RNA sequence: UAGUAUAUUGGUCGCUGUUAAGCCACGGGCGGUAGCGUA
Numbered sequence: 001u002a003g004u005a006u007a008u009u010g011g012u013c014g015c016u017g018u019u020a021a022g023c024c025a026c027g028g029g030c031g032g033u034a035g036c037g038u039a
Stems, first nucleotide, its partner, number of pairs: 009025004
Dot-bracket structure: ........((((.........))))..............
RNA: JUMPstart RNA
Organism: Tenebrionibacter intestinalis